[Rfam]
RNA sequence: CAAAUGGUCGACUAGGGUUCCGAUCUGCAAUGGUUGCAGAUGACUGGUCCGAGAGUUGACGGCCUUUCCAGACGUCACGGCUCCAGGCAUGACGCAAGGCUACACGGCGGGACAAAAGCCCGGGAGGA
Number, nucleotide and partner (000 for none) at each position: 001c000002a000003a000004a000005u000006g000007g060008u059009c058010g057011a056012c055013u000014a000015g050016g049017g000018u000019u000020c047021c046022g044023a041024u040025c039026u038027g037028c036029a000030a000031u000032g000033g000034u000035u000036g028037c027038a026039g025040a024041u023042g000043a000044c022045u000046g021047g020048u000049c016050c015051g000052a000053g000054a000055g012056u011057u010058g009059a008060c007061g101062g100063c099064c098065u097066u096067u000068c094069c000070a000071g000072a000073c000074g000075u000076c000077a000078c000079g000080g000081c000082u000083c000084c000085a000086g000087g000088c000089a000090u000091g000092a000093c000094g068095c000096a066097a065098g064099g063100c062101u061102a000103c123104a000105c126106g000107g000108c000109g121110g120111g119112a000113c000114a000115a000116a000117a000118g000119c111120c110121c109122g000123g103124g000125a000126g105127g000128a000

The record is a 128-nucleotide sequence from Hydrocarboniclastica marina, which matches "Guanidine-I riboswitch aptamer" in Rfam. Pairs were carried over by alignment from the consensus structure. The source organism's lineage runs through Bacteria, Gammaproteobacteria, Alteromonadales, Alteromonadaceae and Hydrocarboniclastica. This family represents a conserved RNA structure found upstream of the ykkC and yxkD genes in Bacillus subtilis and related genes in other bacteria. The function of this family is unclear although it has been suggested that it may function to switch on efflux pumps and detoxification systems in response to harmful environmental molecules.